The record is a 135-nucleotide RNA sequence from Muraenolepis orangiensis, which matches "Small nucleolar RNA SNORA69" in Rfam. Rfam classes the family as an H/ACA-box small nucleolar RNA. Rfam's curators write: U69 is a member of the H/ACA class of small nucleolar RNAs (snoRNAs) which act as guides in the the modification of uridines to pseudouridines. Gene Ontology terms of the family: nucleolus and RNA processing. Lineage of the source: Eukaryota > Bilateria > Neoteleostei > Gadariae > Muraenolepis.
RNA sequence: AAAGCAGGUCUGCAAUUGCAGUACUUCAGACUAGUGGAGUAUUGUCAUUUAUCCUGCUGAGAGUAUCCCUCUGCUAUAGAACUACUCUUCUUGCUCUGUGUGGGUGAUGGAGAUCUGUCUGUAGUAGUGACAUUG
Numbered sequence: 001a002a003a004g005c006a007g008g009u010c011u012g013c014a015a016u017u018g019c020a021g022u023a024c025u026u027c028a029g030a031c032u033a034g035u036g037g038a039g040u041a042u043u044g045u046c047a048u049u050u051a052u053c054c055u056g057c058u059g060a061g062a063g064u065a066u067c068c069c070u071c072u073g074c075u076a077u078a079g080a081a082c083u084a085c086u087c088u089u090c091u092u093g094c095u096c097u098g099u100g101u102g103g104g105u106g107a108u109g110g111a112g113a114u115c116u117g118u119c120u121g122u123a124g125u126a127g128u129g130a131c132a133u134u135g
Base pairs, nucleotide, nucleotide: 003058004057005056006055007054008053019044020043021042022041023040024039025038026037027036069129071127072126073125074124075123076122077121078120079119086113087112088111089110090109092107093105094104095103096102